The record is a 263-nucleotide RNA from Streptomyces sp. 1-11, which matches "Streptomyces sRNA 4677" in Rfam. Lineage of the source: Bacteria > Actinomycetota > Actinomycetes > Kitasatosporales > Streptomyces. Pairs were carried over by alignment from the consensus structure. For this family Rfam cites "Complex intra-operonic dynamics mediated by a small RNA in Streptomyces coelicolor" (Hindra et al., PLoS One, 2014). It scores 139 bits against the family's covariance model. By type it is a small RNA. Rfam's curators write: Located in the intergenic region between anti-sigma factor SCO4677 gene and a putative regulatory protein gene SCO4676. scr4677 expression requires the SCO4677 activity and scr4677 sRNA itself seem to affect the levels of the SCO4676-associated transcripts.
[Rfam]
RNA sequence: UGCUGCGGUGACGACGGCUCUCUUUCCCAAAGGACCACCGAGGAGAAAGAACCCCGCCAAACCCCACCCCUCCCGCCCACGAGGGCACAGACUCACUCUCCAGGGUGAACAUCGCCAACACGGCUGGCGUGGCGCCCCGUUGAUCGCUCUACGCUCGGCGCAGCGAGCCCAGCUCGUCGCAAACCGGAAAAAAAUAGCGGCCCCCGGCCGGGAGUAGCGAUCCCGAUCGAGGGCCUGACCACCUAGGAAGCAAACCCUUCCCG
Dot-bracket structure: ......((((.....(((........................................................)))...............((((((....))))))..............(((((...........................))))).......................................(((((.((...((((.......))))...)).)))))....))))..(((((......)))))..
Numbered sequence: 001u002g003c004u005g006c007g008g009u010g011a012c013g014a015c016g017g018c019u020c021u022c023u024u025u026c027c028c029a030a031a032g033g034a035c036c037a038c039c040g041a042g043g044a045g046a047a048a049g050a051a052c053c054c055c056g057c058c059a060a061a062c063c064c065c066a067c068c069c070c071u072c073c074c075g076c077c078c079a080c081g082a083g084g085g086c087a088c089a090g091a092c093u094c095a096c097u098c099u100c101c102a103g104g105g106u107g108a109a110c111a112u113c114g115c116c117a118a119c120a121c122g123g124c125u126g127g128c129g130u131g132g133c134g135c136c137c138c139g140u141u142g143a144u145c146g147c148u149c150u151a152c153g154c155u156c157g158g159c160g161c162a163g164c165g166a167g168c169c170c171a172g173c174u175c176g177u178c179g180c181a182a183a184c185c186g187g188a189a190a191a192a193a194a195u196a197g198c199g200g201c202c203c204c205c206g207g208c209c210g211g212g213a214g215u216a217g218c219g220a221u222c223c224c225g226a227u228c229g230a231g232g233g234c235c236u237g238a239c240c241a242c243c244u245a246g247g248a249a250g251c252a253a254a255c256c257c258u259u260c261c262c263g
Stems, first nucleotide, its partner, number of pairs: 007243004016077003093108006123159005199235005205229002210224004246261005